[Rfam]
A member of the RNA family "L17 ribosomal protein downstream element" from Isobaculum melis, 77 nucleotides long.
Rfam classes the family as a cis-regulatory element.
The base pairs follow the family's consensus structure, which is taken from published work.
The match comes from Rfam's covariance-model search (57 bits).
Nucleotides: 077
Base pairs, nucleotide, nucleotide: 002043003042004041005040011037012036013035017032018031019030020029021028053077054076055075056074057073058072059071060070061069
Number, partner (000 for none) and nucleotide at each position: 001000a002043g003042a004041g005040u006000g007000u008000u009000a010000u011037g012036a013035u014000g015000a016000u017032g018031g019030a020029a021028a022000u023000g024000a025000a026000c027000u028021u029020u030019u031018c032017c033000a034000a035013g036012u037011c038000u039000a040005g041004c042003u043002c044000g045000a046000a047000g048000u049000u050000u051000c052000u053077u054076c055075u056074u057073a058072g059071a060070a061069a062000g063000c064000a065000g066000g067000u068000c069061u070060u071059u072058c073057u074056a075055a076054g077053g